[Rfam]
RNA sequence: AGGUAAUAUCUACUGUACCUUUAUCAUUGUAGAUACUCGGUUAUACUGUGGGCUGUUGAUGCCUUAGACGUUGAUCGUCAAGGGUAUGAUGUGAGGAGGGGUUAGAUGCCCC
Numbered sequence: 001a002g003g004u005a006a007u008a009u010c011u012a013c014u015g016u017a018c019c020u021u022u023a024u025c026a027u028u029g030u031a032g033a034u035a036c037u038c039g040g041u042u043a044u045a046c047u048g049u050g051g052g053c054u055g056u057u058g059a060u061g062c063c064u065u066a067g068a069c070g071u072u073g074a075u076c077g078u079c080a081a082g083g084g085u086a087u088g089a090u091g092u093g094a095g096g097a098g099g100g101g102u103u104a105g106a107u108g109c110c111c112c
Stems, first nucleotide, its partner, number of pairs: 001020004007035007036095004040090008050064004067079004098112005

Source information:
epsC RNA: a 112-nucleotide sequence from Paenibacillus albiflavus. The match comes from Rfam's covariance-model search (98 bits). It is annotated as a cis-regulatory element.